RNA sequence: GGCUGGUCCGAAGGCAGUGGUUGCCACCAUUAAUUGAUUACAGACAGUUACAGACUUCUUUGUUCUUCUCCCCUCCCACUGCUUCCCUUGACUAGCCUUUU
Numbered sequence: 001g002g003c004u005g006g007u008c009c010g011a012a013g014g015c016a017g018u019g020g021u022u023g024c025c026a027c028c029a030u031u032a033a034u035u036g037a038u039u040a041c042a043g044a045c046a047g048u049u050a051c052a053g054a055c056u057u058c059u060u061u062g063u064u065c066u067u068c069u070c071c072c073c074u075c076c077c078a079c080u081g082c083u084u085c086c087c088u089u090g091a092c093u094a095g096c097c098u099u100u101u
Base pairs, nucleotide, nucleotide: 001097002096003095004094005093006092007091008090010089011088014085016080017079018078019077020076023075029063030062032060033059
Rfam assigns this 101-nucleotide RNA sequence to the family "Y RNA". About the family: Y RNAs are components of the Ro ribonucleoprotein particle (Ro RNP), in association with Ro60 and La proteins. The Y RNAs and Ro60 and La proteins are well conserved, but the function of the Ro RNP is not known. In humans the RNA component can be one of four small RNAs -- hY1, hY3, hY4 and hY5.